[Rfam]
RNA sequence: GGCGGUUCUCGGGUGAUGCACCCCAGAACCAGAGAGGAGGGAGCCCAAUUCCAGGGUGCGUCACCCGAGAACCACC
Numbered sequence: 001g002g003c004g005g006u007u008c009u010c011g012g013g014u015g016a017u018g019c020a021c022c023c024c025a026g027a028a029c030c031a032g033a034g035a036g037g038a039g040g041g042a043g044c045c046c047a048a049u050u051c052c053a054g055g056g057u058g059c060g061u062c063a064c065c066c067g068a069g070a071a072c073c074a075c076c
Stems, first nucleotide, its partner, number of pairs: 002075001005072013019058005026051003